MIR7502 microRNA precursor family: a 145-nucleotide sequence from Gossypium stocksii. The family has 6 seed sequences and 74,505 matches in Rfam 15.1.
RNA sequence: UACUAAAAAUCCAAUCCAUUUCUAUUGUUAAAAACUAUCUUUGCUAAUAGAAUUAUCAGAAAAUUACACACGGUGUGCCAUGUGUACUUCAUUCUAAUGUAUAUGGAUCAAUUUUUAACAGUAAAAAUGGAUGAAAUUUUUAAUA
Number, nucleotide and partner (000 for none) at each position: 001u000002a144003c000004u142005a141006a140007a139008a138009a137010u136011c000012c000013a000014a132015u131016c130017c000018a128019u127020u126021u125022c000023u123024a122025u121026u120027g000028u118029u117030a116031a115032a114033a113034a000035c000036u000037a000038u000039c000040u000041u000042u000043g000044c000045u000046a000047a000048u000049a000050g000051a000052a000053u000054u000055a000056u000057c000058a000059g000060a000061a000062a000063a000064u000065u000066a000067c000068a000069c000070a000071c000072g000073g000074u000075g000076u000077g000078c000079c000080a000081u000082g000083u000084g000085u000086a000087c000088u000089u000090c000091a000092u000093u000094c000095u000096a000097a000098u000099g000100u000101a000102u000103a000104u000105g000106g000107a000108u000109c000110a000111a000112u000113u033114u032115u031116u030117a029118a028119c000120a026121g025122u024123a023124a000125a021126a020127a019128u018129g000130g016131a015132u014133g000134a000135a000136a010137u009138u008139u007140u006141u005142a004143a000144u002145a000